[Rfam]
RNA sequence: UGUCUCCUCCAACUCUCCUUGAAUUGGAUUUCGCCCGCUACCGAAAGGCUAGCGGGCUUUUUUC
Numbered sequence: 001u002g003u004c005u006c007c008u009c010c011a012a013c014u015c016u017c018c019u020u021g022a023a024u025u026g027g028a029u030u031u032c033g034c035c036c037g038c039u040a041c042c043g044a045a046a047g048g049c050u051a052g053c054g055g056g057c058u059u060u061u062u063u064c
Stems, first nucleotide, its partner, number of pairs: 008028005014022002033057008
RNA: Betaproteobacteria toxic small RNA
Organism: Oxalobacteraceae bacterium OM1